This 152-nucleotide RNA from Clostridium neonatale belongs to the Rfam family "glmS glucosamine-6-phosphate activated ribozyme aptamer".

RNA sequence: UCUAUAUUUAAAGCGCCAGAACUUCGAAAGAAGUUGACGAGGUUGGGGAGUUAUCGAAACUUCGGCGGGUGCCCCACGGUAUUAAGCACUACCGUUAACGGCUGGCAAACCUUUAAAGUGAUUUAAAGAACAAAUCCAGUCUGGUGUUAAAA
Numbered sequence: 001u002c003u004a005u006a007u008u009u010a011a012a013g014c015g016c017c018a019g020a021a022c023u024u025c026g027a028a029a030g031a032a033g034u035u036g037a038c039g040a041g042g043u044u045g046g047g048g049a050g051u052u053a054u055c056g057a058a059a060c061u062u063c064g065g066c067g068g069g070u071g072c073c074c075c076a077c078g079g080u081a082u083u084a085a086g087c088a089c090u091a092c093c094g095u096u097a098a099c100g101g102c103u104g105g106c107a108a109a110c111c112u113u114u115a116a117a118g119u120g121a122u123u124u125a126a127a128g129a130a131c132a133a134a135u136c137c138a139g140u141c142u143g144g145u146g147u148u149a150a151a152a
Stems, first nucleotide, its partner, number of pairs: 020035006044076005054065004077094005100141005111128007
Dot-bracket structure: ...................((((((....))))))........(((((.....((((....))))......)))))(((((........))))).....(((((......(((((((....)))))))........)))))...........
The organism belongs to Clostridium, within Bacteria. The base pairs follow the family's consensus structure, which is taken from published work. It is annotated as a riboswitch.